A member of the RNA family "Small nucleolar RNA R38" from Chrysolophus pictus, 74 nucleotides long. Taxonomically the source falls in Chrysolophus (Eukaryota, Vertebrata, Dipnotetrapodomorpha, Amniota). Rfam 15.1 lists 2,295 matches to the family in 1,305 species. Rfam's curators write: snoR38 is a C/D box small nucleolar RNA conserved across yeast, human, Arabidopsis and rice. It is encoded in the intron of elongation factor-1 gamma in both pombe and cerevisiae. snoR38 guides the methylation of 2'-O-ribose sites in 28S rRNA. A search with the family's covariance model found it, with a score of 45 bits. The literature on the family includes a 1995 paper in Trends Biochem Sci by Bachellerie et al., "Antisense snoRNAs: a family of nucleolar RNAs with long complementarities to rRNA".
RNA sequence: CUGAGCCGGUGAUGAGAUGAUUGGUUAUCCCUGUCCGAAACGUUCCGCUGUGGAAGCGUGACUCUGAGGCUCAG
Numbered sequence: 001c002u003g004a005g006c007c008g009g010u011g012a013u014g015a016g017a018u019g020a021u022u023g024g025u026u027a028u029c030c031c032u033g034u035c036c037g038a039a040a041c042g043u044u045c046c047g048c049u050g051u052g053g054a055a056g057c058g059u060g061a062c063u064c065u066g067a068g069g070c071u072c073a074g
Base pairs, nucleotide, nucleotide: 001074002073003072004071005070006069007068